[Rfam]
RNA sequence: GUUGACCUUACAGCAAAUCCUCUCAAAUUUUUACUGAUUAAAAAAACCCCUCGUCAACUG
Dot-bracket structure: ((((((..............................................))))))..
The family of this 60-nucleotide RNA sequence from Dictyostelium discoideum is "Class I RNA from Dictyostelium". By type it is a non-coding RNA gene. About the family: Dictyostelium Class I RNA was first reported for Aspegren et al. 2004 in Dictyostelium discoideum. Rfam's curators put it in the seed alignment. The family's consensus secondary structure is taken from published work.